A member of the RNA family "Lysine riboswitch aptamer" from Paenisporosarcina sp. HGH0030, 180 nucleotides long. The base pairs follow the family's consensus structure, which is taken from published work.
RNA sequence: AGUGGUGAUAGAGGCGCGGAAAUCAACAGUAGCUUUCUCGAGGAUGAACAGAUCCGUUGAAGGAAAGUGAAAGGGAAAUUCGCCGAAGUUCGACAUCCUGUAUCAGAUGUCGUGCUGGUUUUGCAUUGAAUAAAUGCAGGAUUGUCAGAAUCUAAUCGAUUCUGGAGGGCUAUCUCACAU
Numbered sequence: 001a002g003u004g005g006u007g008a009u010a011g012a013g014g015c016g017c018g019g020a021a022a023u024c025a026a027c028a029g030u031a032g033c034u035u036u037c038u039c040g041a042g043g044a045u046g047a048a049c050a051g052a053u054c055c056g057u058u059g060a061a062g063g064a065a066a067g068u069g070a071a072a073g074g075g076a077a078a079u080u081c082g083c084c085g086a087a088g089u090u091c092g093a094c095a096u097c098c099u100g101u102a103u104c105a106g107a108u109g110u111c112g113u114g115c116u117g118g119u120u121u122u123g124c125a126u127u128g129a130a131u132a133a134a135u136g137c138a139g140g141a142u143u144g145u146c147a148g149a150a151u152c153u154a155a156u157c158g159a160u161u162c163u164g165g166a167g168g169g170c171u172a173u174c175u176c177a178c179a180u
Base pairs, nucleotide, nucleotide: 007174008173009172010171011170016083017082018081019080020079023076024075032068033067034066035065036064037063038062087116088115089114091112092111093110094109095108096107097106117143118142119141120140121139122138123137124136125135126134127133145165146164147163148162149161150160151159
It scores 127 bits against the family's covariance model.
The source organism's lineage runs through Bacteria, Bacillati, Caryophanales, Caryophanaceae and Paenisporosarcina.